[Rfam]
RNA sequence: GGUCACGAGUGCCAGCGCGAAGCCCCGGCUCGCUGGCCGGCAACCCUUCCACCGCGACGGGGUGCUCCGGGUGACGACCUGGCGGCUGCGCAGCGCAGCCGCAAGCGCGGGUC
Number, nucleotide and partner (000 for none) at each position: 001g079002g078003u077004c076005a000006c000007g000008a000009g038010u000011g037012c036013c035014a034015g033016c032017g000018c000019g000020a000021a030022g029023c000024c000025c000026c000027g000028g000029c022030u021031c000032g016033c015034u014035g013036g012037c011038c009039g066040g065041c064042a000043a000044c062045c061046c060047u000048u057049c056050c000051a000052c000053c000054g000055c000056g049057a048058c000059g000060g046061g045062g044063u000064g041065c040066u039067c000068c000069g000070g000071g000072u000073g000074a000075c000076g004077a003078c002079c001080u000081g000082g102083c101084g100085g099086c098087u097088g096089c095090g094091c000092a000093g000094c090095g089096c088097a087098g086099c085100c084101g083102c082103a000104a000105g000106c000107g000108c000109g000110g000111g000112u000113c000
The family of this 113-nucleotide RNA from Geodermatophilus sp. Leaf369 is "SAM (S-adenosyl methionine) riboswitch aptamer". The match comes from Rfam's covariance-model search (108 bits). Rfam 15.1 lists 2,360 matches to the family in 1,305 species. Lineage of the source: Bacteria > Bacillati > Actinomycetes > Geodermatophilales > Geodermatophilus.